Archaeal large subunit ribosomal RNA: a 357-nucleotide part of an RNA from Methanothrix soehngenii. Its family is annotated with structural constituent of ribosome and ribosome in the Gene Ontology. A search with the family's covariance model found it, with a score of 2872 bits.

RNA sequence: CGGCAUAUGCUAGCUAAGGGAAUUCGGCAAAUUAGCCACGUAACUUCGGGAUAAGUGGUGCCUGCUUUGCAAAAAGCAGGUCGCAGUGACGAGGGGACUCUAACUGUCUAAUAACAACAUAGGUGAUUGCGAAUCCGUAAGGACUAGUACAAUCACUGAAUCCUGCCCAGUGCAGGUACCUGAAAACCCGGUUCAACGGGAGGAAGGGCCUGUCAACGGCGGGGGUAACUAUGACCCUCUUAAGGUAGCGUAGUACCUUGCCGCUUAAUUGGCGGCUUGCAUGAAUGGAACAAUGAGAGUCUCACUGUCCCUAGCUGGUACCCGGUGAACCUUACAUUCCAGUGCAGAGUCUGGAGA
Dot-bracket structure: (((.....((((((((.(((..............(((((....(....).....)))))(((((((((....)))))))))(...).......(((((((((..(((.........)))..(((((((((...(((....)))...)..))))))))...(((.(((..(((((((..(((.....((((......)))).....))))))))..)))))((((((.......))))))(...)...............((((((.....))))))..........)))....)).)))))))....))).))))))))..))).............(((((........)))))..